[Rfam]
RNA sequence: UGAUGAAACGUCUCCGGAAUCGCUGUACGGCAUUGAUGAGUCCUCGAACCCUUCAUGGCUGAUGGCUGCGGUCGGGGUUGUC
Numbered sequence: 001u002g003a004u005g006a007a008a009c010g011u012c013u014c015c016g017g018a019a020u021c022g023c024u025g026u027a028c029g030g031c032a033u034u035g036a037u038g039a040g041u042c043c044u045c046g047a048a049c050c051c052u053u054c055a056u057g058g059c060u061g062a063u064g065g066c067u068g069c070g071g072u073c074g075g076g077g078u079u080g081u082c
Stems, first nucleotide, its partner, number of pairs: 002082005
The family of this 82-nucleotide RNA sequence from Coturnix japonica is "Small nucleolar RNA MBII-202". The source organism's lineage runs through Eukaryota, Chordata, Tetrapoda, Saurischia and Coturnix. Pairs were carried over by alignment from the consensus structure, which was predicted with PFOLD. It scores 54 bits against the family's covariance model. By type it is a C/D-box small nucleolar RNA. Rfam 15.1 lists 745 matches to the family in 452 species.